FMN riboswitch aptamer (RFN element): a 130-nucleotide RNA from Pseudaminobacter soli. The organism belongs to Pseudaminobacter, within Bacteria.

RNA sequence: GAGCGCUCUCAGGGCGGGGUGCAAUUCCCCACCGGCGGUGACAGCCCGCGAGCGCUUCCGGCGACGGAAGGUCAGCAGAUCCGGUGGAACUCCGGAGCCGACGGUAUAGUCCGGAUGGAAGAGAACGCGU
Numbered sequence: 001g002a003g004c005g006c007u008c009u010c011a012g013g014g015c016g017g018g019g020u021g022c023a024a025u026u027c028c029c030c031a032c033c034g035g036c037g038g039u040g041a042c043a044g045c046c047c048g049c050g051a052g053c054g055c056u057u058c059c060g061g062c063g064a065c066g067g068a069a070g071g072u073c074a075g076c077a078g079a080u081c082c083g084g085u086g087g088a089a090c091u092c093c094g095g096a097g098c099c100g101a102c103g104g105u106a107u108a109g110u111c112c113g114g115a116u117g118g119a120a121g122a123g124a125a126c127g128c129g130u
Base pairs, nucleotide, nucleotide: 003128004127005126007124008123009122010121017029018028019027031110032109033100034099035049036048037047038046044098045097052076053075080096081095082094083093084092102113103112104111